[Rfam]
RNA sequence: GCAUUUCCAACUGAGGUACCAGGUGCAUCUCAAUGGGACUGGUUAGAGAGUGGGCCCAGUCCCAUUGAGAUGCACCUGGUACCUCAGUUGGAAAUGC
Numbered sequence: 001g002c003a004u005u006u007c008c009a010a011c012u013g014a015g016g017u018a019c020c021a022g023g024u025g026c027a028u029c030u031c032a033a034u035g036g037g038a039c040u041g042g043u044u045a046g047a048g049a050g051u052g053g054g055c056c057c058a059g060u061c062c063c064a065u066u067g068a069g070a071u072g073c074a075c076c077u078g079g080u081a082c083c084u085c086a087g088u089u090g091g092a093a094a095u096g097c
Base pairs, nucleotide, nucleotide: 001097002096003095004094005093006091008090009089010088011087013085014084015083016082017081018080019079022076023075024074025073026072027071028070029069030068031067032066033065034064035063036062037061038060039059040058041057042056
RNA: mir-306 microRNA precursor family
Organism: Aotus nancymaae